[Rfam]
RNA sequence: AGCCCAAUCAGAGUCUUAAUUUAUUUCUUAAGCUUUGCUAUGUAAGGGUCUGUGGUGUUUUUAAGUAACUAUUUCUUCUUCAUGCC
Dot-bracket structure: ..........((...((((.....((....(.((((((...)))))).)....)).....))))...........)).........